[Rfam]
RNA sequence: ACAACAAGAAUAAGAAAAAGCACCACCUCUAAUAAAAACAACAUGAACGGCUCUGGCAUAACAAGAACAACGACGGCAGAACCGAAGCCAACAGAUUUUUUUGACGAAUGCAGGCGUUUCUCGGGAGGUUUCCCGAGCCAAACCCAGAACAACAAAACUGCGUAUCAGCAGCCCGGUUCGGUCACCUCGGUGUGAAACGGUUAAAGCGUUCAAAAAAAUACGUUUGCUCUUGGCCCUGAUUGGGGGCCGGCCGCAAGGCCACUGCGAAACAGGCAACAAUAAUCACAAUAGCCCGAUCGCCAUAAUAAUAAGAGCACACGCAAUACCUUUGAGGGGAGCCUAGGCUCCCCUCAGUGCAUUCAGGGCGUUUCCCAUAUUC
Numbered sequence: 001a002c003a004a005c006a007a008g009a010a011u012a013a014g015a016a017a018a019a020g021c022a023c024c025a026c027c028u029c030u031a032a033u034a035a036a037a038a039c040a041a042c043a044u045g046a047a048c049g050g051c052u053c054u055g056g057c058a059u060a061a062c063a064a065g066a067a068c069a070a071c072g073a074c075g076g077c078a079g080a081a082c083c084g085a086a087g088c089c090a091a092c093a094g095a096u097u098u099u100u101u102u103g104a105c106g107a108a109u110g111c112a113g114g115c116g117u118u119u120c121u122c123g124g125g126a127g128g129u130u131u132c133c134c135g136a137g138c139c140a141a142a143c144c145c146a147g148a149a150c151a152a153c154a155a156a157a158c159u160g161c162g163u164a165u166c167a168g169c170a171g172c173c174c175g176g177u178u179c180g181g182u183c184a185c186c187u188c189g190g191u192g193u194g195a196a197a198c199g200g201u202u203a204a205a206g207c208g209u210u211c212a213a214a215a216a217a218a219u220a221c222g223u224u225u226g227c228u229c230u231u232g233g234c235c236c237u238g239a240u241u242g243g244g245g246g247c248c249g250g251c252c253g254c255a256a257g258g259c260c261a262c263u264g265c266g267a268a269a270c271a272g273g274c275a276a277c278a279a280u281a282a283u284c285a286c287a288a289u290a291g292c293c294c295g296a297u298c299g300c301c302a303u304a305a306u307a308a309u310a311a312g313a314g315c316a317c318a319c320g321c322a323a324u325a326c327c328u329u330u331g332a333g334g335g336g337a338g339c340c341u342a343g344g345c346u347c348c349c350c351u352c353a354g355u356g357c358a359u360u361c362a363g364g365g366c367g368u369u370u371c372c373c374a375u376a377u378u379c
Stems, first nucleotide, its partner, number of pairs: 048084002052080003099215005115208003137182003141178001158171004233247005264368003270295001272293002314357004331352009

Background:
The family of this 379-nucleotide RNA from Pseudomonas sp. URIL14HWK12:I9 is "Pseudomonas sRNA CrcZ". Rfam 15.1 lists 127 matches to the family in 96 species. Taxonomically the source falls in Pseudomonas (Bacteria, Pseudomonadota, Gammaproteobacteria, Pseudomonadaceae). On this family, see Sonnleitner et al., Proc Natl Acad Sci U S A 2009: "Small RNA as global regulator of carbon catabolite repression in Pseudomonas aeruginosa". Its family is annotated with carbon catabolite repression of transcription in the Gene Ontology. It is annotated as a small RNA. The base pairs follow the family's consensus structure, which was predicted with WAR.